About this RNA: The family of this 73-nucleotide sequence from Rotaria sordida is "mir-87 microRNA precursor family". Gene Ontology terms of the family: RISC complex and miRNA-mediated post-transcriptional gene silencing. A search with the family's covariance model found it, with a score of 58 bits.
[Rfam]
RNA sequence: UAAUGCACGCCUGAAAUUUUUCUCAAACCUUUGCUCUUAAAUGAAUAGGUGAGCAAAGUUUCAGGUGUAUUGA
Numbered sequence: 001u002a003a004u005g006c007a008c009g010c011c012u013g014a015a016a017u018u019u020u021u022c023u024c025a026a027a028c029c030u031u032u033g034c035u036c037u038u039a040a041a042u043g044a045a046u047a048g049g050u051g052a053g054c055a056a057a058g059u060u061u062c063a064g065g066u067g068u069a070u071u072g073a
Base pairs, nucleotide, nucleotide: 002071003070004069008067009066010065011064012063013062014061016059017058018057019056020055022053023052024051025050028049029048030047